The family of this 199-nucleotide RNA sequence from Kineococcus xinjiangensis is "Actinobacteria sRNA Ms_IGR-5". Pairs were carried over by alignment from the consensus structure. Rfam classes the family as a small RNA. The match comes from Rfam's covariance-model search (94 bits). For this family Rfam cites "Identification of small RNAs in Mycobacterium smegmatis using heterologous Hfq" (Li et al., RNA, 2013). Lineage of the source: Bacteria > Bacillati > Actinomycetes > Kineosporiaceae > Kineococcus.

RNA sequence: ACACGGGAAGGAGGUGGUCCAGAGCAUGCAGAACUCUCGGACGCGUGAGGUGGCUGCCAGCUAGCAGCUGCGUGCAGGACGCUGACCGGUCUGGUCGCCCCGCGCAGCGCGGCGAAUCCCAGGCAGUCACCGAGGCCCCCGGGUGCCGGCCAGUCCAGUCGGCCCUCCGCCAGGAGGAAGCACCCGGGGGCCUUCCCAU
Numbered sequence: 001a002c003a004c005g006g007g008a009a010g011g012a013g014g015u016g017g018u019c020c021a022g023a024g025c026a027u028g029c030a031g032a033a034c035u036c037u038c039g040g041a042c043g044c045g046u047g048a049g050g051u052g053g054c055u056g057c058c059a060g061c062u063a064g065c066a067g068c069u070g071c072g073u074g075c076a077g078g079a080c081g082c083u084g085a086c087c088g089g090u091c092u093g094g095u096c097g098c099c100c101c102g103c104g105c106a107g108c109g110c111g112g113c114g115a116a117u118c119c120c121a122g123g124c125a126g127u128c129a130c131c132g133a134g135g136c137c138c139c140c141g142g143g144u145g146c147c148g149g150c151c152a153g154u155c156c157a158g159u160c161g162g163c164c165c166u167c168c169g170c171c172a173g174g175a176g177g178a179a180g181c182a183c184c185c186g187g188g189g190g191c192c193u194u195c196c197c198a199u
Base pairs, nucleotide, nucleotide: 013058014057015056016055017054018053060113061112062111064110065109067108068107069106070105072103073102074101133193134192135191136190137189138188139187140186141185142184143183144182145181146162147161148160149159150158